Rfam assigns this 370-nucleotide RNA sequence from Streptomyces sp. GS7 to the family "transfer-messenger RNA". Pairs were carried over by alignment from the consensus structure, which is taken from published work. Taxonomically the source falls in Streptomyces (Bacteria, Bacillati, Actinomycetota, Streptomycetaceae). It is annotated as a non-coding RNA gene. Bacterial tmRNA, also known as 10Sa RNA or SsrA, is named for its dual tRNA and mRNA-like properties. Its role is to liberate the mRNA from a stalled ribosome.
[Rfam]
RNA sequence: GGGGAUGAUCGGUUUCGACAGCGGAUGUCGAAGCAGGGGAAGCGAGUCGAGGAAGCGGCAAUGAUCUCGUUAACCAUGUGUCGCAACCAAUAAUCGCCAACACCAAGCGCGAUUCCUUCGCCCUCGCUGCCUAAGUAGCGACCUGCGAAGUGUCAGCCCGGGGAUGUUCCCGACCCGGAUCCUGGCAUCAGCUAGGGGACUAAACUCCUGAACCCGGUCACGGGGUGCAGGAGGAAAUCACACAGUGACUGAGCCCGUCGGAGACUUGUUCGCGUGAUCUCCGGGGCCGAGAAAAUCGCAGCGAACUGCACUCGGAGAAGCCCUGAUUCCGCACCGUUGGACGCGGGUUCGAUUCCCGCCAUCUCCACAA
Number, nucleotide and partner (000 for none) at each position: 001g366002g365003g364004g363005a362006u361007g360008a000009u000010c000011g000012g000013u000014u000015u000016c000017g000018a000019c339020a338021g337022c336023g335024g334025a000026u000027g000028u000029c000030g329031a328032a327033g000034c325035a324036g323037g322038g321039g000040a000041a000042g000043c314044g313045a312046g311047u310048c069049g068050a067051g066052g065053a000054a000055g084056c083057g082058g081059c080060a079061a000062u000063g000064a000065u052066c051067u050068c049069g048070u000071u000072a000073a000074c000075c000076a000077u000078g000079u060080g059081u058082c057083g056084c055085a000086a000087c000088c000089a000090a000091u000092a000093a000094u000095c000096g000097c000098c000099a000100a000101c000102a000103c000104c000105a000106a000107g000108c000109g000110c000111g000112a000113u000114u000115c000116c000117u000118u000119c000120g000121c000122c000123c000124u141125c140126g139127c138128u137129g136130c135131c000132u000133a000134a000135g130136u129137a128138g127139c126140g125141a124142c000143c000144u000145g000146c000147g000148a000149a000150g000151u187152g186153u185154c184155a183156g182157c000158c178159c177160g176161g000162g000163g175164a000165u173166g200167u199168u198169c197170c196171c195172g000173a165174c000175c163176c160177g159178g158179a000180u000181c000182c156183u155184g154185g153186c152187a151188u000189c000190a000191g000192c000193u000194a000195g171196g170197g169198g168199a167200c166201u000202a000203a000204a000205c233206u232207c231208c230209u229210g228211a000212a226213c225214c000215c000216g250217g249218u248219c247220a246221c245222g000223g000224g000225g213226u212227g000228c210229a209230g208231g207232a206233g205234g000235a000236a000237a000238u000239c000240a000241c000242a000243c000244a000245g221246u220247g219248a218249c217250u216251g000252a000253g287254c286255c285256c284257g000258u000259c283260g282261g281262a000263g279264a278265c000266u000267u000268g306269u305270u304271c303272g000273c000274g000275u000276g000277a000278u264279c263280u000281c261282c260283g259284g256285g255286g254287c253288c000289g000290a000291g000292a000293a000294a000295a000296u000297c000298g000299c000300a000301g000302c000303g271304a270305a269306c268307u000308g000309c000310a047311c046312u045313c044314g043315g000316a000317g000318a000319a000320g000321c038322c037323c036324u035325g034326a000327u032328u031329c030330c000331g000332c000333a000334c024335c023336g022337u021338u020339g019340g000341a000342c000343g359344c358345g357346g356347g355348u000349u000350c000351g000352a000353u000354u000355c347356c346357c345358g344359c343360c007361a006362u005363c004364u003365c002366c001367a000368c000369a000370a000